[Rfam]
RNA sequence: AUAAAAUAAUAGUUAUCGCCUUGUAUAAGUUCAAGAAUAUGGCUUGAACGUUUCUACCAGCUACCUUUAAAUAGCCUGUCUACAAGGAGUGAAAAUAUGUAU
Numbered sequence: 001a002u003a004a005a006a007u008a009a010u011a012g013u014u015a016u017c018g019c020c021u022u023g024u025a026u027a028a029g030u031u032c033a034a035g036a037a038u039a040u041g042g043c044u045u046g047a048a049c050g051u052u053u054c055u056a057c058c059a060g061c062u063a064c065c066u067u068u069a070a071a072u073a074g075c076c077u078g079u080c081u082a083c084a085a086g087g088a089g090u091g092a093a094a095a096u097a098u099g100u101a102u
Stems, first nucleotide, its partner, number of pairs: 019087007029049007058078002060075004
Background
Shown here is a 102-nucleotide RNA from Bacilli bacterium VT-13-104, a member of the family "Purine riboswitch aptamer". It scores 76 bits against the family's covariance model.